[Rfam]
RNA: L31-Gammaproteobacteria ribosomal protein leader
RNA sequence: CGUGUGGUGCUGCGCAGGUUCACGUCCUGGCGCGGAGAGCGACACGGCCUUAUAUGAGGU
Numbered sequence: 001c002g003u004g005u006g007g008u009g010c011u012g013c014g015c016a017g018g019u020u021c022a023c024g025u026c027c028u029g030g031c032g033c034g035g036a037g038a039g040c041g042a043c044a045c046g047g048c049c050u051u052a053u054a055u056g057a058g059g060u
Stems, first nucleotide, its partner, number of pairs: 001046005007040002010035006